[Rfam]
RNA: Small Cajal body specific RNA 11
RNA sequence: GUGUCCAGUCUGAUAGCCCCUGUCUCCAGUCAUGGCAGUGAGCACACAGACAGGACACAGACUAACAGCCAUCCAGUUAAGGGGACAUUUCCGCGAGAAGGAAUUGGUCCUAAAGGCAGGAUGGCACAUU
Numbered sequence: 001g002u003g004u005c006c007a008g009u010c011u012g013a014u015a016g017c018c019c020c021u022g023u024c025u026c027c028a029g030u031c032a033u034g035g036c037a038g039u040g041a042g043c044a045c046a047c048a049g050a051c052a053g054g055a056c057a058c059a060g061a062c063u064a065a066c067a068g069c070c071a072u073c074c075a076g077u078u079a080a081g082g083g084g085a086c087a088u089u090u091c092c093g094c095g096a097g098a099a100g101g102a103a104u105u106g107g108u109c110c111u112a113a114a115g116g117c118a119g120g121a122u123g124g125c126a127c128a129u130u
Base pairs, nucleotide, nucleotide: 002057003056004055005054006053008051010049016043017042018040020038021037022036023035068125069124070123071122072121073120077115078114081111082110083109084108086106087105088103089102090101091100